Pseudomonas sRNA P26: a 46-nucleotide RNA sequence. About the family: This small RNA (sRNA) was computationally identified in the genome of the opportunistic pathogen Pseudomonas aeruginosa and its expression verified by northern blot analysis. P26 is conserved across many Gammaproteobacteria species and appears to be consistently located between the DNA directed RNA polymerase (beta subunit) and 50S ribosomal protein L7/L12 genes. On this family, see Livny et al., Nucleic Acids Res 2006: "Identification of 17 Pseudomonas aeruginosa sRNAs and prediction of sRNA-encoding genes in 10 diverse pathogens using the bioinformatic tool sRNAPredict2". Rfam classes the family as a non-coding RNA gene. The match comes from Rfam's covariance-model search (37 bits).
[Rfam]
RNA sequence: AACCUUCCUUCUGAGAAGUGGCUGGUGGUUUUUGAACCACCAGCCU
Dot-bracket structure: .....((.....)).....((((((((((......)))))))))).